SAM riboswitch aptamer (S box leader): a 108-nucleotide RNA sequence from Pedobacter antarcticus.
Gene Ontology term of the family: regulation of gene expression.
It scores 87 bits against the family's covariance model.
NCBI's taxonomy places the organism under Bacteria, Pseudomonadati, Bacteroidota, Pedobacter, Pedobacter antarcticus.

RNA sequence: AACUUAUCAAGAAAGGUGGAGGGAAUGGCCCUUUGAAGCCUUAGCAACCGUCCGUGAAAAUGGAAAUGGUGCUAAUUCCAUCCCGGGACAGCCCGGGGUAGUUAAGUC
Numbered sequence: 001a002a003c004u005u006a007u008c009a010a011g012a013a014a015g016g017u018g019g020a021g022g023g024a025a026u027g028g029c030c031c032u033u034u035g036a037a038g039c040c041u042u043a044g045c046a047a048c049c050g051u052c053c054g055u056g057a058a059a060a061u062g063g064a065a066a067u068g069g070u071g072c073u074a075a076u077u078c079c080a081u082c083c084c085g086g087g088a089c090a091g092c093c094c095g096g097g098g099u100a101g102u103u104a105a106g107u108c
Base pairs, nucleotide, nucleotide: 002107003106004105005104006103008101013042014041015040016039017038021031022030023029025081026080027079028078043073044072045071046070048069049068051064052063053062077100082097083096084095085094086093087092